[Rfam]
RNA sequence: CGUCACCUUGCUGGAGAGAGGCGGCUGCACCCACACACCGUGGCCGUCCACCGAAGGAGCAACCCCGGCGCAGCGCGCGCUAUCCCGGGCGAAUCUCUCAGGUAAAGCGGACAGCAGGGCAAAU
Numbered sequence: 001c002g003u004c005a006c007c008u009u010g011c012u013g014g015a016g017a018g019a020g021g022c023g024g025c026u027g028c029a030c031c032c033a034c035a036c037a038c039c040g041u042g043g044c045c046g047u048c049c050a051c052c053g054a055a056g057g058a059g060c061a062a063c064c065c066c067g068g069c070g071c072a073g074c075g076c077g078c079g080c081u082a083u084c085c086c087g088g089g090c091g092a093a094u095c096u097c098u099c100a101g102g103u104a105a106a107g108c109g110g111a112c113a114g115c116a117g118g119g120c121a122a123a124u
Stems, first nucleotide, its partner, number of pairs: 006119008020048009050103003053099002057097003064089005
Dot-bracket structure: .....((((((((......(((((((((...........))))))))).(((((..(((....(((((................))))).....))))).)))........)))))))).....
RNA: Glycine riboswitch aptamer
Organism: Simplicispira metamorpha